Small nucleolar RNA SNORA13: a 131-nucleotide sequence from Denticeps clupeoides.
It is annotated as an H/ACA-box small nucleolar RNA.
The base pairs follow the family's consensus structure, which was predicted with CMfinder.
Rfam 15.1 lists 1,034 matches to the family in 605 species.
Rfam links the family to the GO terms nucleolus and RNA processing.
RNA sequence: UGCCUUUAUGUGUUGCCCAUUCAAGAACUGGUUUAUGAAUGUGGUGUCAGAUAAGGCAGAUAUGAACCCUGCAGGUGGUUUACAAGGUGUGUUCAACCUUGCACAUUCUGAGUUCCACCUUAAGGACAUUU
Numbered sequence: 001u002g003c004c005u006u007u008a009u010g011u012g013u014u015g016c017c018c019a020u021u022c023a024a025g026a027a028c029u030g031g032u033u034u035a036u037g038a039a040u041g042u043g044g045u046g047u048c049a050g051a052u053a054a055g056g057c058a059g060a061u062a063u064g065a066a067c068c069c070u071g072c073a074g075g076u077g078g079u080u081u082a083c084a085a086g087g088u089g090u091g092u093u094c095a096a097c098c099u100u101g102c103a104c105a106u107u108c109u110g111a112g113u114u115c116c117a118c119c120u121u122a123a124g125g126a127c128a129u130u131u
Stems, first nucleotide, its partner, number of pairs: 002057005011049002014046004018041006025034001069124002073120006083110002085107002089102002